This 89-nucleotide RNA from Phasianus colchicus belongs to the Rfam family "Retrovirus direct repeat 1 (dr1)". NCBI's taxonomy places the organism under Eukaryota, Amniota, Sauria, Neognathae, Phasianus. About the family: This family represents the direct repeat 1 (dr1) element commonly found in the 3' UTR of Avian sarcoma, Rous sarcoma and Avian leukosis viruses (Alpharetroviruses and Avian type C retroviruses). dr1 is required for efficient viral replication and is thought to be involved in genomic RNA packaging although this may not be its only role.
RNA sequence: UGUAAUGGGGCAAGGCUUAACUGAGAGGACAAUGGCAUGUAUAGGCGCAAAGCGGGGCUUCGGUUGUACGCGGUUAGGGUCCUCUCAGA
Numbered sequence: 001u002g003u004a005a006u007g008g009g010g011c012a013a014g015g016c017u018u019a020a021c022u023g024a025g026a027g028g029a030c031a032a033u034g035g036c037a038u039g040u041a042u043a044g045g046c047g048c049a050a051a052g053c054g055g056g057g058c059u060u061c062g063g064u065u066g067u068a069c070g071c072g073g074u075u076a077g078g079g080u081c082c083u084c085u086c087a088g089a
Stems, first nucleotide, its partner, number of pairs: 001012003023086008042076003046072002052067004